[Rfam]
Record summary: A member of the RNA family "HIV gag stem loop 3 (GSL3)" from Lentivirus humimdef1, 84 nucleotides long. A reference for the family is Rong et al. (2003), "Deletion of stem-loop 3 is compensated by second-site mutations within the Gag protein of human immunodeficiency virus type 1", Virology. Rfam describes the family as follows. This family consists of several HIV gag stem loop 3 (GSL3) sequences.
RNA sequence: GGCCAAGGGGAAAGAAAAGAUAUAAGUUAAAACAUAUAGUAUGGGCAAGCAGGGAGCUAGAACGAUUUGCUGUCAAUCCUAGCC
Numbered sequence: 001g002g003c004c005a006a007g008g009g010g011a012a013a014g015a016a017a018a019g020a021u022a023u024a025a026g027u028u029a030a031a032a033c034a035u036a037u038a039g040u041a042u043g044g045g046c047a048a049g050c051a052g053g054g055a056g057c058u059a060g061a062a063c064g065a066u067u068u069g070c071u072g073u074c075a076a077u078c079c080u081a082g083c084c
Stems, first nucleotide, its partner, number of pairs: 001084003005080001007078002